[Rfam]
RNA sequence: GGCCCGGUGGCAGAGUGGUCAUGCAGAGGACUGCAAAUCCUUGUACGUCGGUUCGAUUCCGGCCCGGGCCU
Dot-bracket structure: (((((((..(((.........))).(((((.......)))))....(((((.......)))))))))))).
Numbered sequence: 001g002g003c004c005c006g007g008u009g010g011c012a013g014a015g016u017g018g019u020c021a022u023g024c025a026g027a028g029g030a031c032u033g034c035a036a037a038u039c040c041u042u043g044u045a046c047g048u049c050g051g052u053u054c055g056a057u058u059c060c061g062g063c064c065c066g067g068g069c070c071u
Stems, first nucleotide, its partner, number of pairs: 001070007010024003026042005047063005
Shown here is a 71-nucleotide RNA from Arboricoccus pini, a member of the family "tRNA". It scores 61 bits against the family's covariance model. NCBI's taxonomy places the organism under Bacteria, Pseudomonadati, Pseudomonadota, Geminicoccaceae, Arboricoccus. The base pairs follow the family's consensus structure, which is taken from published work.